[Rfam]
RNA sequence: GCGGGAGUGGUGGAAUUGGCAGACACGCAGGAUUUAGGUUCCUGUGCUUUCGAGCGUGAGGGUUCAAGUCCCUCCUUCCGCA
Numbered sequence: 001g002c003g004g005g006a007g008u009g010g011u012g013g014a015a016u017u018g019g020c021a022g023a024c025a026c027g028c029a030g031g032a033u034u035u036a037g038g039u040u041c042c043u044g045u046g047c048u049u050u051c052g053a054g055c056g057u058g059a060g061g062g063u064u065c066a067a068g069u070c071c072c073u074c075c076u077u078c079c080g081c082a
Stems, first nucleotide, its partner, number of pairs: 001081007010026003028044005058074005
This 82-nucleotide RNA from Cnuibacter physcomitrellae belongs to the Rfam family "tRNA". Its family is annotated with triplet codon-amino acid adaptor activity in the Gene Ontology. By type it is a transfer RNA. Lineage of the source: Bacteria > Bacillati > Actinomycetes > Micrococcales > Cnuibacter. Rfam 15.1 lists 5,335,975 matches to the family in 14,413 species. The base pairs follow the family's consensus structure, which is taken from published work. From the family's description: Transfer RNA (tRNA) molecules are approximately 80 nucleotides in length. It scores 54 bits against the family's covariance model.